[Rfam]
RNA sequence: UUAAAGCUGCGUUGUACGUAGAAUAUUAAGUUUUAACCUUUAAGCUGUAACAGGGAGUUUUAGAUCGAGGAUGGAAUGGCGGGCAUCACACCGAGGUGAAUGAUGAUAAACAGGAAAUUUUUUGCGAACACCCACUUUGAGGAGUGGUGGUUAAAAACUUUCUAUAAUCAUUACGGCAAGGCGGCUUCUCA
Numbered sequence: 001u002u003a004a005a006g007c008u009g010c011g012u013u014g015u016a017c018g019u020a021g022a023a024u025a026u027u028a029a030g031u032u033u034u035a036a037c038c039u040u041u042a043a044g045c046u047g048u049a050a051c052a053g054g055g056a057g058u059u060u061u062a063g064a065u066c067g068a069g070g071a072u073g074g075a076a077u078g079g080c081g082g083g084c085a086u087c088a089c090a091c092c093g094a095g096g097u098g099a100a101u102g103a104u105g106a107u108a109a110a111c112a113g114g115a116a117a118u119u120u121u122u123u124g125c126g127a128a129c130a131c132c133c134a135c136u137u138u139g140a141g142g143a144g145u146g147g148u149g150g151u152u153a154a155a156a157a158c159u160u161u162c163u164a165u166a167a168u169c170a171u172u173a174c175g176g177c178a179a180g181g182c183g184g185c186u187u188c189u190c191a
Stems, first nucleotide, its partner, number of pairs: 004187007012179004017175003029159004033154006053133003057129004064123001067122006078111001
6S / SsrS RNA: a 191-nucleotide RNA sequence from Ureibacillus sinduriensis. It scores 61 bits against the family's covariance model.